[Rfam]
Shown here is a 99-nucleotide RNA sequence, a member of the family "c-di-GMP-II-GAG riboswitch aptamer".
RNA sequence: UGUAACGAGCGCGGCUUUGACUUCGGGAUGUUUUCGGUCACCAUGUCCUGCAAUGGGCAUCCUCCGAGGUAGCCAAUGGUGAGACCGGCGCACGGAGAA
Numbered sequence: 001u002g003u004a005a006c007g008a009g010c011g012c013g014g015c016u017u018u019g020a021c022u023u024c025g026g027g028a029u030g031u032u033u034u035c036g037g038u039c040a041c042c043a044u045g046u047c048c049u050g051c052a053a054u055g056g057g058c059a060u061c062c063u064c065c066g067a068g069g070u071a072g073c074c075a076a077u078g079g080u081g082a083g084a085c086c087g088g089c090g091c092a093c094g095g096a097g098a099a
Base pairs, nucleotide, nucleotide: 001099003097006094007093009091010090011089013074014073015072022068023067024066025065026064027063036086037085038082039081040080041079042078
Its family is annotated with regulation of gene expression and cyclic-di-GMP binding in the Gene Ontology. Rfam's curators put it in the seed alignment.